The family of this 106-nucleotide sequence from an SAR116 cluster bacterium is "rpsB sRNA". The family's RNA type in Rfam is small RNA. A reference for the family is Meyer et al. (2009), "Identification of candidate structured RNAs in the marine organism 'Candidatus Pelagibacter ubique'", BMC Genomics. It scores 43 bits against the family's covariance model.
[Rfam]
RNA sequence: CACACAUGAAGACUGCCUGUUGGCAAAUUCCAACAUUACAGGCUUUCCGGUGAGAGAUUUUUCUCUUUCACACUUCAUGGAGGUUUAACCGGAGAACAGGAGGAUU
Numbered sequence: 001c002a003c004a005c006a007u008g009a010a011g012a013c014u015g016c017c018u019g020u021u022g023g024c025a026a027a028u029u030c031c032a033a034c035a036u037u038a039c040a041g042g043c044u045u046u047c048c049g050g051u052g053a054g055a056g057a058u059u060u061u062u063c064u065c066u067u068u069c070a071c072a073c074u075u076c077a078u079g080g081a082g083g084u085u086u087a088a089c090c091g092g093a094g095a096a097c098a099g100g101a102g103g104a105u106u
Stems, first nucleotide, its partner, number of pairs: 001082001003080001005079007015043005052067006